Shown here is a 62-nucleotide RNA sequence from Microcaecilia unicolor, a member of the family "Small nucleolar RNA Z39". The source organism's lineage runs through Eukaryota, Opisthokonta, Metazoa, Gnathostomata and Microcaecilia. Pairs were carried over by alignment from the consensus structure, which was predicted with PFOLD. The match comes from Rfam's covariance-model search (63 bits). Its family is annotated with nucleolus and RNA processing in the Gene Ontology. For this family Rfam cites "The high diversity of snoRNAs in plants: identification and comparative study of 120 snoRNA genes from Oryza sativa" (Chen et al., Nucleic Acids Res, 2003).

[Rfam]
RNA sequence: GUGCACAUGAUGUAGAAGUAACAGUAUGAAAAACCAUGAUACUGUAAACGCUUUCUGAUGCA
Numbered sequence: 001g002u003g004c005a006c007a008u009g010a011u012g013u014a015g016a017a018g019u020a021a022c023a024g025u026a027u028g029a030a031a032a033a034c035c036a037u038g039a040u041a042c043u044g045u046a047a048a049c050g051c052u053u054u055c056u057g058a059u060g061c062a
Base pairs, nucleotide, nucleotide: 002062003061004060005059012054014052015051022044023043024042025041026040027039